The record is a 130-nucleotide sequence from Vitis rotundifolia, which matches "MIR845_2 microRNA precursor family" in Rfam. Rfam links the family to the GO terms miRNA-mediated post-transcriptional gene silencing and RISC complex. The family's consensus secondary structure was predicted with WAR.
RNA sequence: AAAAUGCACAUUAACUAUUCCUAGGGUCAUGGGAUAAACAAAAACCCUAUAAAACAAGUUAGCACACCCUAGAAUGGUUCUAGCAUGAUUACUAACCUAUGUCUCUGACACUAGUUGAUGGGAAAAACCC
Numbered sequence: 001a002a003a004a005u006g007c008a009c010a011u012u013a014a015c016u017a018u019u020c021c022u023a024g025g026g027u028c029a030u031g032g033g034a035u036a037a038a039c040a041a042a043a044a045c046c047c048u049a050u051a052a053a054a055c056a057a058g059u060u061a062g063c064a065c066a067c068c069c070u071a072g073a074a075u076g077g078u079u080c081u082a083g084c085a086u087g088a089u090u091a092c093u094a095a096c097c098u099a100u101g102u103c104u105c106u107g108a109c110a111c112u113a114g115u116u117g118a119u120g121g122g123a124a125a126a127a128c129c130c
Stems, first nucleotide, its partner, number of pairs: 009120008022107005028101006048085001053079002055076002059072004
Taxonomically the source falls in Vitis (Eukaryota, Embryophyta, rosids, Vitales).